[Rfam]
RNA sequence: CAAGGGAAACUCAUCAAUGGGGCUACCAGCUGAGUACACUCAUCAUUCUACACCAAGUCCCUUGGGAAGGUCUGAGACUAGAGUCAGAGGGGACUUUACCUUCCCUUAGUUUCAGUGAGGUGAGUACUCAGAGAAUGUGGCUUCAUGAGAGGGAAGACUGGGCAGAAGAAGCUGUGGACUGCACUCUCAGGAGGGUCCUGGUGGAUGCCUCCUUAGCCAGAGCUUGGAAUAGACUCAUGGCCAGCAAAGUGAGUUUAGUGGCUACAGUGAGAUACCUUGCAUGGGGAUCUCAUAACCCAAUUCAAACUACUCUUCCCCAUG
Number, nucleotide and partner (000 for none) at each position: 001c321002a320003a000004g000005g315006g314007a313008a000009a000010c000011u000012c000013a263014u000015c261016a000017a000018u000019g062020g061021g060022g059023c000024u000025a000026c000027c000028a000029g000030c000031u000032g048033a047034g046035u045036a000037c000038a000039c000040u000041c000042a000043u000044c000045a035046u034047u033048c032049u000050a000051c000052a000053c000054c000055a000056a000057g000058u000059c022060c021061c020062u019063u000064g000065g000066g000067a000068a000069g000070g000071u000072c000073u304074g303075a302076g301077a000078c000079u000080a000081g000082a000083g241084u240085c239086a000087g000088a000089g000090g000091g000092g099093a000094c000095u000096u000097u000098a000099c092100c000101u119102u118103c117104c000105c115106u114107u000108a000109g000110u000111u000112u000113c000114a106115g105116u000117g103118a102119g101120g238121u237122g236123a235124g234125u233126a000127c000128u000129c000130a000131g000132a000133g000134a000135a000136u000137g000138u000139g000140g223141c222142u221143u000144c000145a000146u000147g000148a000149g000150a000151g000152g000153g000154a000155a000156g000157a000158c000159u000160g000161g000162g000163c000164a000165g000166a000167a000168g000169a000170a000171g000172c000173u000174g000175u000176g000177g000178a000179c000180u000181g000182c000183a000184c000185u000186c000187u000188c000189a000190g000191g000192a000193g000194g000195g000196u000197c000198c000199u000200g000201g000202u000203g000204g000205a000206u000207g000208c000209c000210u000211c000212c000213u000214u000215a000216g000217c000218c000219a000220g000221a142222g141223c140224u000225u000226g000227g000228a000229a000230u000231a000232g000233a125234c124235u123236c122237a121238u120239g085240g084241c083242c000243a000244g000245c000246a000247a000248a000249g000250u000251g000252a000253g000254u000255u000256u000257a000258g000259u000260g000261g015262c000263u013264a000265c000266a000267g293268u292269g291270a290271g289272a288273u287274a000275c000276c000277u000278u000279g000280c000281a000282u000283g000284g000285g000286g000287a273288u272289c271290u270291c269292a268293u267294a000295a000296c000297c000298c000299a000300a000301u076302u075303c074304a073305a000306a000307c000308u000309a000310c000311u000312c000313u007314u006315c005316c000317c000318c000319a000320u002321g001
Nuclear RNase P: a 321-nucleotide RNA from Orycteropus afer. Gene Ontology terms of the family: ribonuclease P complex, ribonuclease P activity and tRNA processing. The base pairs follow the family's consensus structure, which is taken from published work.